[Rfam]
Record summary: The family of this 82-nucleotide RNA from Caenorhabditis elegans is "mir-238 microRNA precursor family". It is one of the family's seed sequences. Taxonomically the source falls in Caenorhabditis (Eukaryota, Opisthokonta, Ecdysozoa, Rhabditomorpha).
RNA sequence: UGACUGUUUGGAUGUUCUCGGACGUUCAAAGCUACAUCCAACAAAUUGGUAGCUUUGUACUCCGAUGCCAUUCAGAUAGUUA
Numbered sequence: 001u002g003a004c005u006g007u008u009u010g011g012a013u014g015u016u017c018u019c020g021g022a023c024g025u026u027c028a029a030a031g032c033u034a035c036a037u038c039c040a041a042c043a044a045a046u047u048g049g050u051a052g053c054u055u056u057g058u059a060c061u062c063c064g065a066u067g068c069c070a071u072u073c074a075g076a077u078a079g080u081u082a
Base pairs, nucleotide, nucleotide: 003080004079005078006077007076008075009074010073011072012071013070014069018065019064020063021062022061024060025059028056029055030054031053032052033051034050